mir-2807 microRNA precursor family: an 82-nucleotide RNA from Bombyx mori.
RNA sequence: CUAUUUGUAAUUUGUAUGUAGUUGGAACAGCUUCCCUUCGUUUGCCGCUAGGGGCGCUGUUCCAACUCCAUACUUUGAGUUA
Numbered sequence: 001c002u003a004u005u006u007g008u009a010a011u012u013u014g015u016a017u018g019u020a021g022u023u024g025g026a027a028c029a030g031c032u033u034c035c036c037u038u039c040g041u042u043u044g045c046c047g048c049u050a051g052g053g054g055c056g057c058u059g060u061u062c063c064a065a066c067u068c069c070a071u072a073c074u075u076u077g078a079g080u081u082a
Stems, first nucleotide, its partner, number of pairs: 009075002014073003018069001020067010035053003040048002
Rfam links the family to the GO terms miRNA-mediated post-transcriptional gene silencing and RISC complex.